[Rfam]
About this RNA: A member of the RNA family "MIR2912 microRNA precursor family" from Populus deltoides, 156 nucleotides long.
RNA sequence: UCUAGAACUCGAGAUAUGGGCUCAACACUAAAUAGUGUCUGGGCUGUAGGAUAGAUUCUGACUUCUCUAUUGUUGCUAAGAUUUGGACUUCCAAACAACAGAAUUUAGUCUUGCACUCCACAUGAAUGUUUUAGGCAUAUAUCUUAGCUUUCUAGC
Numbered sequence: 001u002c003u004a005g006a007a008c009u010c011g012a013g014a015u016a017u018g019g020g021c022u023c024a025a026c027a028c029u030a031a032a033u034a035g036u037g038u039c040u041g042g043g044c045u046g047u048a049g050g051a052u053a054g055a056u057u058c059u060g061a062c063u064u065c066u067c068u069a070u071u072g073u074u075g076c077u078a079a080g081a082u083u084u085g086g087a088c089u090u091c092c093a094a095a096c097a098a099c100a101g102a103a104u105u106u107a108g109u110c111u112u113g114c115a116c117u118c119c120a121c122a123u124g125a126a127u128g129u130u131u132u133a134g135g136c137a138u139a140u141a142u143c144u145u146a147g148c149u150u151u152c153u154a155g156c
Stems, first nucleotide, its partner, number of pairs: 002155006008147002011145008020136001021134002024131002027129002035123003041119003045115002048112005054105007063097001072088003
The source organism's lineage runs through Eukaryota, Euphyllophyta, eudicotyledons, fabids and Populus. Pairs were carried over by alignment from the consensus structure, which was predicted with RNAalifold. Gene Ontology terms of the family: miRNA-mediated post-transcriptional gene silencing and RISC complex.